[Rfam]
RNA sequence: CCAAUGUAGAUACCCUUCGAGGUCACUGUCCCCAGGGUAUGUCCUAGUGGCAUAGGGGAGCAUAGUGCCCUCCCCCGUGAUGUACAGUCCUUUUCCACGAUGUUGUUUAUGAAGCUUGGCUUUGAUUCUGUGCCUGUAUAUUCCUAUGAUUUUAUAGAGCCCUGUGGAUGGUGACUGAGGAGACAACCAUUGCAGGAAACAAAA
Number, nucleotide and partner (000 for none) at each position: 001c000002c105003a104004a103005u102006g101007u100008a000009g043010a042011u041012a040013c000014c036015c035016u034017u000018c000019g000020a027021g026022g000023u000024c000025a000026c021027u020028g000029u000030c000031c000032c000033c000034a016035g015036g014037g000038u000039a000040u012041g011042u010043c009044c000045u000046a000047g098048u097049g096050g095051c000052a000053u000054a000055g000056g091057g090058g089059a088060g085061c000062a083063u082064a081065g078066u077067g000068c000069c000070c000071u000072c000073c000074c000075c000076c000077g066078u065079g000080a000081u064082g063083u062084a000085c060086a000087g000088u059089c058090c057091u056092u000093u000094u000095c050096c049097a048098c047099g000100a007101u006102g005103u004104u003105g002106u000107u000108u000109a000110u000111g000112a000113a000114g000115c000116u000117u000118g000119g000120c000121u000122u000123u000124g000125a000126u000127u000128c000129u000130g000131u000132g000133c196134c195135u194136g193137u192138a191139u000140a000141u000142u000143c000144c000145u000146a000147u000148g000149a000150u182151u181152u180153u179154a000155u177156a000157g000158a000159g169160c000161c167162c166163u000164g000165u000166g162167g161168a000169u159170g000171g000172u000173g000174a000175c000176u000177g155178a000179g153180g152181a151182g150183a000184c000185a000186a000187c000188c000189a000190u000191u138192g137193c136194a135195g134196g133197a000198a000199a000200c000201a000202a000203a000204a000